[Rfam]
RNA sequence: UCUUUUCGACGAUUACCCCUGCGGUAGUCGGCGGAACUUCCUCAUCUCUACCAACAAUGGGCUGAGAAGAGACGACGAGUGCGGUUUUUAUCGACGUCUUUUGAUCGCACGCAUCCGCCCUCCUUGCCGCCCCGUGGGCCCGAAGGAGAGGAAUCAAAAACUAGUCCGUGUU
Number, nucleotide and partner (000 for none) at each position: 001u000002c000003u000004u000005u035006u034007c033008g000009a000010c030011g029012a028013u027014u000015a025016c024017c023018c000019c000020u000021g000022c000023g017024g016025u015026a000027g013028u012029c011030g010031g000032c000033g007034g006035a005036a000037c000038u000039u075040c074041c071042u070043c069044a000045u067046c066047u065048c064049u000050a000051c000052c000053a058054a000055c000056a000057a000058u053059g000060g000061g000062c000063u000064g048065a047066g046067a045068a000069g043070a042071g041072a000073c000074g040075a039076c000077g000078a000079g000080u000081g000082c000083g000084g000085u000086u000087u000088u000089u000090a000091u000092c000093g166094a165095c164096g161097u160098c000099u159100u158101u157102u156103g155104a154105u000106c000107g000108c000109a000110c000111g000112c000113a000114u000115c000116c000117g000118c151119c150120c148121u147122c146123c145124u000125u000126g000127c000128c000129g000130c000131c142132c000133c000134g000135u000136g000137g000138g000139c000140c000141c000142g131143a000144a000145g123146g122147a121148g120149a000150g119151g118152a000153a000154u104155c103156a102157a101158a100159a099160a097161c096162u000163a000164g095165u094166c093167c000168g000169u000170g000171u000172u000
A member of the RNA family "Ascomycota telomerase RNA" from Monosporascus sp. 5C6A, 172 nucleotides of a longer RNA. The match comes from Rfam's covariance-model search (344 bits). The base pairs follow the family's consensus structure.